A member of the RNA family "Eukaryotic large subunit ribosomal RNA" from Wallemia ichthyophaga, 286 nucleotides of a longer RNA.
RNA sequence: GAGUCUAACAUAUCUGCGAGUAUUUGAGUGACAAACUCGAAUGCGUAAUGAAAGUGAAUGUAGGUGUGAAGCGUUUAAGCUGCAACAUCGACCGAUCUUGAAUUUUUAUAAUGAUGGAUUUGAGUAAGAGCAUAUAUGUUGGGACCCGAAAGAUGGUGAACUAUGCCUGAAUAGGGUGAAGCCAGAGGAAACUCUGGUGGAGGCUCGUAGCGGUUCUGACGUGCAAAUCGAUCGUCAAAUUUGGGUAUAGGGGCGAAAGACUAAUCGAACCAUCUAGUAGCUGGUU
Numbered sequence: 001g002a003g004u005c006u007a008a009c010a011u012a013u014c015u016g017c018g019a020g021u022a023u024u025u026g027a028g029u030g031a032c033a034a035a036c037u038c039g040a041a042u043g044c045g046u047a048a049u050g051a052a053a054g055u056g057a058a059u060g061u062a063g064g065u066g067u068g069a070a071g072c073g074u075u076u077a078a079g080c081u082g083c084a085a086c087a088u089c090g091a092c093c094g095a096u097c098u099u100g101a102a103u104u105u106u107u108a109u110a111a112u113g114a115u116g117g118a119u120u121u122g123a124g125u126a127a128g129a130g131c132a133u134a135u136a137u138g139u140u141g142g143g144a145c146c147c148g149a150a151a152g153a154u155g156g157u158g159a160a161c162u163a164u165g166c167c168u169g170a171a172u173a174g175g176g177u178g179a180a181g182c183c184a185g186a187g188g189a190a191a192c193u194c195u196g197g198u199g200g201a202g203g204c205u206c207g208u209a210g211c212g213g214u215u216c217u218g219a220c221g222u223g224c225a226a227a228u229c230g231a232u233c234g235u236c237a238a239a240u241u242u243g244g245g246u247a248u249a250g251g252g253g254c255g256a257a258a259g260a261c262u263a264a265u266c267g268a269a270c271c272a273u274c275u276a277g278u279a280g281c282u283g284g285u286u
Stems, first nucleotide, its partner, number of pairs: 005142009015132003020044003025039005048055002063089005070081003091125002093122003096118003102112002145284002148281001152274006161250011172238001174206004181198007210235004215231002218229002252262002
The source organism's lineage runs through Eukaryota, Fungi, Basidiomycota, Wallemiomycotina and Wallemia.